[Rfam]
RNA: Small nucleolar RNA SNORA17
Organism: Microcebus murinus
RNA sequence: ACUUCUCCUAGAGGCAUUGCAGAUGUGGGUGCUGUGUCACAUUUGUGUCAUUAGGUGACAGAGAGAGGAGAGGCUAUGUCUACAUUCAGUGUUCUGACCCAUGAAUGUUUGAAUGAUUAAUAGUCUGCCAUA
Numbered sequence: 001a002c003u004u005c006u007c008c009u010a011g012a013g014g015c016a017u018u019g020c021a022g023a024u025g026u027g028g029g030u031g032c033u034g035u036g037u038c039a040c041a042u043u044u045g046u047g048u049c050a051u052u053a054g055g056u057g058a059c060a061g062a063g064a065g066a067g068g069a070g071a072g073g074c075u076a077u078g079u080c081u082a083c084a085u086u087c088a089g090u091g092u093u094c095u096g097a098c099c100c101a102u103g104a105a106u107g108u109u110u111g112a113a114u115g116a117u118u119a120a121u122a123g124u125c126u127g128c129c130a131u132a
Stems, first nucleotide, its partner, number of pairs: 002061002006057001007055005013049003019046004024041005068129001071126007083115002086112004090107005